[Rfam]
RNA sequence: GGUGGUUCUCGGGGGAUGCACCCAGGAAUCGGGCUCUCUCCUCUCUGGUUCCAGGUGUGUCACAUAAGAACCGCA
Numbered sequence: 001g002g003u004g005g006u007u008c009u010c011g012g013g014g015g016a017u018g019c020a021c022c023c024a025g026g027a028a029u030c031g032g033g034c035u036c037u038c039u040c041c042u043c044u045c046u047g048g049u050u051c052c053a054g055g056u057g058u059g060u061c062a063c064a065u066a067a068g069a070a071c072c073g074c075a
Base pairs, nucleotide, nucleotide: 002074003073005071006070007069008068009067011065013063015061016060017059019057020056021055022054025052026051027050028049029048030047031046032045033044